[Rfam]
RNA sequence: UUGCAUUCAGAAAUGUCUACCCCAAAUUCCUUUGGGAUAGGUAUGCAUCCAUAACAUUCUACAUUAUAAAAGAAGUUCUCAAGGCUGUCAGCCAUAUAGUAGAAGUUGAGUUGUAGUAUAUUUCUCCUAAUUAA
Numbered sequence: 001u002u003g004c005a006u007u008c009a010g011a012a013a014u015g016u017c018u019a020c021c022c023c024a025a026a027u028u029c030c031u032u033u034g035g036g037a038u039a040g041g042u043a044u045g046c047a048u049c050c051a052u053a054a055c056a057u058u059c060u061a062c063a064u065u066a067u068a069a070a071a072g073a074a075g076u077u078c079u080c081a082a083g084g085c086u087g088u089c090a091g092c093c094a095u096a097u098a099g100u101a102g103a104a105g106u107u108g109a110g111u112u113g114u115a116g117u118a119u120a121u122u123u124c125u126c127c128u129a130a131u132u133a134a
Stems, first nucleotide, its partner, number of pairs: 003059001005057002016041004021036003072127001074125002084114002088110001089108004095102001

This 134-nucleotide RNA from Dipodomys ordii belongs to the Rfam family "Small nucleolar RNA U109". A reference for the family is Gu et al. (2005), "A novel experimental approach for systematic identification of box H/ACA snoRNAs from eukaryotes", Nucleic Acids Res. A search with the family's covariance model found it, with a score of 97 bits. The family's RNA type in Rfam is H/ACA-box small nucleolar RNA. NCBI's taxonomy places the organism under Eukaryota, Opisthokonta, Euteleostomi, Theria, Dipodomys.